RNA sequence: AUUGCCUUCAGAAUAACCGGAGGGCGAAAUCAAUGUAAACGCCCUCUGGUUCAGACAGAGGCUGAAACUGAAAUGGGAAUACGUUUGAGGGUGAGGAACGAUUUCCCGAUUGUUCUUUUCCUAGAUAGCUUCCCACAUGU
Numbered sequence: 001a002u003u004g005c006c007u008u009c010a011g012a013a014u015a016a017c018c019g020g021a022g023g024g025c026g027a028a029a030u031c032a033a034u035g036u037a038a039a040c041g042c043c044c045u046c047u048g049g050u051u052c053a054g055a056c057a058g059a060g061g062c063u064g065a066a067a068c069u070g071a072a073a074u075g076g077g078a079a080u081a082c083g084u085u086u087g088a089g090g091g092u093g094a095g096g097a098a099c100g101a102u103u104u105c106c107c108g109a110u111u112g113u114u115c116u117u118u119u120c121c122u123a124g125a126u127a128g129c130u131u132c133c134c135a136c137a138u139g140u
Stems, first nucleotide, its partner, number of pairs: 004062004009058001015051008024042003075133004080128001082108002087105003091102001114125003
Description:
The family of this 140-nucleotide RNA sequence from Corymbia citriodora is "Small nucleolar RNA snoR138". A search with the family's covariance model found it, with a score of 65 bits. On this family, see Chen and Wu, Nucleic Acids Res 2009: "Mining small RNA sequencing data: a new approach to identify small nucleolar RNAs in Arabidopsis". Pairs were carried over by alignment from the consensus structure, which was predicted with mfold.